[Rfam]
This 214-nucleotide RNA sequence from Streptomyces jeddahensis belongs to the Rfam family "Actinobacteria sRNA Ms_IGR-5". Rfam classes the family as a small RNA.
RNA sequence: ACACGGAAGGGAGGUGGUUCGGCAGAUGUAUGAAUACCGGACGCGUGAGGUGGCUGCGGGCUAGCGGCCCGUCACCACACCGAGUGCGGUGCCGGACCAGCGCGCGAGCUGAGCGCGCAGCCGGCCAAUUCCACGCAGUCACCCGACCCGCGGGCCGCCGGUACGUCCGGCCGGCUCCCUCCUCGGAGGGACCAUGGCCCGCGGGUCGUCUGCG
Numbered sequence: 001a002c003a004c005g006g007a008a009g010g011g012a013g014g015u016g017g018u019u020c021g022g023c024a025g026a027u028g029u030a031u032g033a034a035u036a037c038c039g040g041a042c043g044c045g046u047g048a049g050g051u052g053g054c055u056g057c058g059g060g061c062u063a064g065c066g067g068c069c070c071g072u073c074a075c076c077a078c079a080c081c082g083a084g085u086g087c088g089g090u091g092c093c094g095g096a097c098c099a100g101c102g103c104g105c106g107a108g109c110u111g112a113g114c115g116c117g118c119a120g121c122c123g124g125c126c127a128a129u130u131c132c133a134c135g136c137a138g139u140c141a142c143c144c145g146a147c148c149c150g151c152g153g154g155c156c157g158c159c160g161g162u163a164c165g166u167c168c169g170g171c172c173g174g175c176u177c178c179c180u181c182c183u184c185g186g187a188g189g190g191a192c193c194a195u196g197g198c199c200c201g202c203g204g205g206u207c208g209u210c211u212g213c214g
Stems, first nucleotide, its partner, number of pairs: 014057005059126004064121002067118002070115001072112003144208013157175006
Lineage of the source: Bacteria > Actinomycetota > Kitasatosporales > Streptomycetaceae > Streptomyces.